[Rfam]
Nucleotides: 141
Base pairs, nucleotide, nucleotide: 001141002140003139004138005137006136033053034052035051036050037049038048039047
Number, partner (000 for none) and nucleotide at each position: 001141u002140u003139g004138c005137c006136c007000g008000a009000u010000g011000a012000u013000u014000a015000u016000a017000a018000a019000a020000a021000g022000a023000c024000g025000c026000g027000u028000u029000a030000a031000a032000g033053a034052g035051g036050a037049c038048u039047u040000a041000a042000u043000g044000c045000u046000g047039g048038a049037g050036u051035u052034c053033u054000u055000u056000a057000u058000c059000u060000u061000u062000u063000c064000c065000u066000c067000u068000c069000u070000u071000u072000u073000u074000c075000u076000g077000u078000a079000c080000u081000u082000c083000u084000u085000u086000u087000u088000c089000u090000g091000u092000c093000u094000u095000u096000g097000g098000a099000u100000g101000u102000c103000c104000a105000g106000c107000g108000u109000c110000c111000u112000g113000u114000g115000a116000g117000c118000g119000a120000a121000g122000a123000u124000u125000a126000u127000g128000a129000g130000a131000u132000a133000u134000g135000a136006g137005g138004g139003c140002a141001a